[Rfam]
RNA sequence: AAGGGAGAAACCGAAAACCCAUUAGAGUAGGUA
Numbered sequence: 001a002a003g004g005g006a007g008a009a010a011c012c013g014a015a016a017a018c019c020c021a022u023u024a025g026a027g028u029a030g031g032u033a
Stems, first nucleotide, its partner, number of pairs: 003020003010032003
The family of this 33-nucleotide RNA is "DUF805b RNA". Pairs were carried over by alignment from the consensus structure, which is taken from published work.